[Rfam]
RNA sequence: AUGAGGAGGAACCGUUAUGCGCAUAGCGCAUAAUUAAAAAUCGGUUCCGACGACCUGCCGCCGGGCAUAAGCACGGGGGCAACACAGAUU
Numbered sequence: 001a002u003g004a005g006g007a008g009g010a011a012c013c014g015u016u017a018u019g020c021g022c023a024u025a026g027c028g029c030a031u032a033a034u035u036a037a038a039a040a041u042c043g044g045u046u047c048c049g050a051c052g053a054c055c056u057g058c059c060g061c062c063g064g065g066c067a068u069a070a071g072c073a074c075g076g077g078g079g080c081a082a083c084a085c086a087g088a089u090u
Stems, first nucleotide, its partner, number of pairs: 008048006016032006057080003061076002065072002
Overview
Shown here is a 90-nucleotide RNA sequence, a member of the family "GA-cis RNA". Rfam's curators put it in the seed alignment.